[Rfam]
Notes
A member of the RNA family "SmY spliceosomal RNA" from Cylicocyclus nassatus, 78 nucleotides long. The family has 61 seed sequences and 408 matches in Rfam 15.1. The family's RNA type in Rfam is spliceosomal small nuclear RNA. For this family Rfam cites "A novel family of C. elegans snRNPs contains proteins associated with trans-splicing" (MacMorris et al., RNA, 2007). The organism belongs to Cylicocyclus, within Eukaryota.
RNA sequence: CGAAACCUUGAUAAGACUACAGGGCCUUUUAUAAGACCCAGUGUCCAAUUUUUGGGAACCCUUGCGGGAGCAAGGGUA
Numbered sequence: 001c002g003a004a005a006c007c008u009u010g011a012u013a014a015g016a017c018u019a020c021a022g023g024g025c026c027u028u029u030u031a032u033a034a035g036a037c038c039c040a041g042u043g044u045c046c047a048a049u050u051u052u053u054g055g056g057a058a059c060c061c062u063u064g065c066g067g068g069a070g071c072a073a074g075g076g077u078a
Stems, first nucleotide, its partner, number of pairs: 022039003026035003058077008